[Rfam]
RNA sequence: AUAUUCCUUCAGGGCAGGGUGCAAUUCCCGACCGGCGGUGAUCUAUUUCCUAAAUAGUAAGCCCGCGAGCUAUAUAUCAGCAGGAUUUGGUGGAAUUCCAGAGCCGACAGUAAAGUCUGGAUGGGAGAAGGAUGUC
Number, nucleotide and partner (000 for none) at each position: 001a000002u000003a000004u000005u132006c131007c130008u129009u128010c127011a000012g000013g000014g000015c000016a000017g029018g028019g027020u000021g000022c000023a000024a000025u000026u000027c019028c018029c017030g000031a116032c115033c106034g105035g066036c065037g064038g063039u000040g000041a000042u000043c000044u000045a000046u000047u000048u000049c000050c000051u000052a000053a000054a000055u000056a000057g000058u000059a000060a000061g104062c103063c038064c037065g036066c035067g000068a000069g081070c080071u079072a000073u000074a000075u000076a000077u000078c000079a071080g070081c069082a000083g000084g000085a000086u102087u101088u100089g099090g098091u000092g000093g000094a000095a000096u000097u000098c090099c089100a088101g087102a086103g062104c061105c034106g033107a000108c119109a118110g117111u000112a000113a000114a000115g032116u031117c110118u109119g108120g000121a000122u000123g000124g000125g000126a000127g010128a009129a008130g007131g006132a005133u000134g000135u000136c000